[Rfam]
Nucleotides: 075
Stems, first nucleotide, its partner, number of pairs: 002074005008068007016060005024053007
Number, partner (000 for none) and nucleotide at each position: 001000u002074c003073a004072c005071c006070u007000c008068u009067c010066a011065u012064u013063u014062u015000c016060g017059u018058g019057a020056u021000u022000u023000u024053u025052g026051c027050a028049a029048u030047u031000u032000g033000a034000a035000u036000a037000a038000a039000c040000a041000a042000u043000u044000g045000g046000a047030a048029a049028u050027u051026g052025c053024a054000u055000a056020g057019u058018c059017a060016c061000a062014a063013a064012a065011g066010u067009g068008a069000u070006g071005g072004g073003u074002g075000c